[Rfam]
RNA sequence: GGCCACCUUCGGGGGGCUAAACAUCAGGCGGACCAGUUACAGGAUCCGCCUCAGCUAGACGGAAGACAGAAA
Number, nucleotide and partner (000 for none) at each position: 001g018002g017003c016004c015005a000006c014007c013008u012009u000010c000011g000012g008013g007014g006015g004016g003017c002018u001019a000020a000021a000022c000023a000024u000025c000026a000027g050028g049029c048030g047031g046032a045033c000034c000035a000036g000037u000038u000039a000040c000041a000042g000043g000044a000045u032046c031047c030048g029049c028050c027051u000052c000053a000054g000055c000056u000057a000058g000059a000060c000061g000062g000063a000064a000065g000066a000067c000068a000069g000070a000071a000072a000
The family of this 72-nucleotide sequence is "L2-Alphaproteobacteria ribosomal protein leader".
The base pairs follow the family's consensus structure, which is taken from published work.
A reference for the family is Eckert and Weinberg (2020), "Discovery of 20 novel ribosomal leader candidates in bacteria and archaea", BMC Microbiol.
The sequence is in the family's curated seed alignment.